About this RNA: Rfam assigns this 90-nucleotide RNA from Zizania palustris to the family "Small nucleolar RNA R38". The family has 19 seed sequences and 2,295 matches in Rfam 15.1. Rfam's curators write: snoR38 is a C/D box small nucleolar RNA conserved across yeast, human, Arabidopsis and rice. It is encoded in the intron of elongation factor-1 gamma in both pombe and cerevisiae. snoR38 guides the methylation of 2'-O-ribose sites in 28S rRNA. Lineage of the source: Eukaryota > Streptophytina > Euphyllophyta > Liliopsida > Zizania.

RNA sequence: AGAUGUAGGUGAUGAAAUCACAAGUAAAUUACAGUUAUCCUUGUCUGAUUCCUUCACAAGGUUAUGAGAAUACUUAGAUCUGACACAUUA
Numbered sequence: 001a002g003a004u005g006u007a008g009g010u011g012a013u014g015a016a017a018u019c020a021c022a023a024g025u026a027a028a029u030u031a032c033a034g035u036u037a038u039c040c041u042u043g044u045c046u047g048a049u050u051c052c053u054u055c056a057c058a059a060g061g062u063u064a065u066g067a068g069a070a071u072a073c074u075u076a077g078a079u080c081u082g083a084c085a086c087a088u089u090a
Stems, first nucleotide, its partner, number of pairs: 002089005